[Rfam]
RNA: FMN riboswitch aptamer (RFN element)
Organism: Ramlibacter montanisoli
RNA sequence: CGGGGUCUUCAGGGCGGGGUGCGAUUCCCCACCGGCGGUAGGCCACGCGAGUGGCGAGCCCGCGAGCGCCCGGGGCUGCGCAGGCAGCCCCGGGGUCAGCAGACCCAGUCCGAUGCUGGGGCCGACGGUGUUGCAGGUCUCACGGCCUGUUCAGUCCGGAUGAAAGAAGAUUCGC
Numbered sequence: 001c002g003g004g005g006u007c008u009u010c011a012g013g014g015c016g017g018g019g020u021g022c023g024a025u026u027c028c029c030c031a032c033c034g035g036c037g038g039u040a041g042g043c044c045a046c047g048c049g050a051g052u053g054g055c056g057a058g059c060c061c062g063c064g065a066g067c068g069c070c071c072g073g074g075g076c077u078g079c080g081c082a083g084g085c086a087g088c089c090c091c092g093g094g095g096u097c098a099g100c101a102g103a104c105c106c107a108g109u110c111c112g113a114u115g116c117u118g119g120g121g122c123c124g125a126c127g128g129u130g131u132u133g134c135a136g137g138u139c140u141c142a143c144g145g146c147c148u149g150u151u152c153a154g155u156c157c158g159g160a161u162g163a164a165a166g167a168a169g170a171u172u173c174g175c
Stems, first nucleotide, its partner, number of pairs: 003173008017029003033124002035063004058122002066100002104120005126158003
Dot-bracket structure: ..((((((((......(((.......)))...((((((...................[[))))..((...............................))...(((((.......)))))]])).(((...........................))).......))))))))..